Background:
Flavo-1 RNA: a 106-nucleotide sequence. By type it is a small RNA.
RNA sequence: UGAUAGCCCUGACAGAAACGAUAUCCUUUCAUUGCGAUUAAAAAUAAUUGUAUUUAGAUCGCUUCAUUCCUCGCAAUGAAAGAUAAAGUGAAUGGCAGGAUAACAA
Numbered sequence: 001u002g003a004u005a006g007c008c009c010u011g012a013c014a015g016a017a018a019c020g021a022u023a024u025c026c027u028u029u030c031a032u033u034g035c036g037a038u039u040a041a042a043a044a045u046a047a048u049u050g051u052a053u054u055u056a057g058a059u060c061g062c063u064u065c066a067u068u069c070c071u072c073g074c075a076a077u078g079a080a081a082g083a084u085a086a087a088g089u090g091a092a093u094g095g096c097a098g099g100a101u102a103a104c105a106a
Stems, first nucleotide, its partner, number of pairs: 009098003013094002018089002023084003029079008